[Rfam]
This 177-nucleotide RNA from bacterium 1XD42-8 belongs to the Rfam family "Lysine riboswitch aptamer". The family has 47 seed sequences and 3,224 matches in Rfam 15.1. From the family's description: Riboswitches are metabolite binding domains within certain messenger RNAs that serve as precision sensors for their corresponding targets.
RNA sequence: CAAACCGGUAGAGGUGCGUUUUUCAUCAGUAGUCCGGAAAUAGACUGCCAAGGUCGUUAAAAAUCGGAUCAAAGGGGAAUACGCCGAAGAAGGCUGUCUGGCAAACACCUUCUGGGCAUACAUCAAAAAGGUGUAUGACUGUCAUCAUGGUAAGUAUGAUGGAGAGCUCUGGAGGCA
Numbered sequence: 001c002a003a004a005c006c007g008g009u010a011g012a013g014g015u016g017c018g019u020u021u022u023u024c025a026u027c028a029g030u031a032g033u034c035c036g037g038a039a040a041u042a043g044a045c046u047g048c049c050a051a052g053g054u055c056g057u058u059a060a061a062a063a064u065c066g067g068a069u070c071a072a073a074g075g076g077g078a079a080u081a082c083g084c085c086g087a088a089g090a091a092g093g094c095u096g097u098c099u100g101g102c103a104a105a106c107a108c109c110u111u112c113u114g115g116g117c118a119u120a121c122a123u124c125a126a127a128a129a130g131g132u133g134u135a136u137g138a139c140u141g142u143c144a145u146c147a148u149g150g151u152a153a154g155u156a157u158g159a160u161g162g163a164g165a166g167c168u169c170u171g172g173a174g175g176c177a
Stems, first nucleotide, its partner, number of pairs: 006172001008170001010168002016084004021079004032069006088113006097107001099105001114140002117137008142162007